[Rfam]
RNA: Vault RNA
Organism: Collichthys lucidus
RNA sequence: GCGCUGGUUUAGCUCAGUGGUUACUUCGAACAAAAUGAAAUACUGCUCUCCAUCCCUCUUCGGGAUCGAACCAUGGGCGCUGUCCAGUGCUUUU
Numbered sequence: 001g002c003g004c005u006g007g008u009u010u011a012g013c014u015c016a017g018u019g020g021u022u023a024c025u026u027c028g029a030a031c032a033a034a035a036u037g038a039a040a041u042a043c044u045g046c047u048c049u050c051c052a053u054c055c056c057u058c059u060u061c062g063g064g065a066u067c068g069a070a071c072c073a074u075g076g077g078c079g080c081u082g083u084c085c086a087g088u089g090c091u092u093u094u
Stems, first nucleotide, its partner, number of pairs: 002089006012078004017074004025070005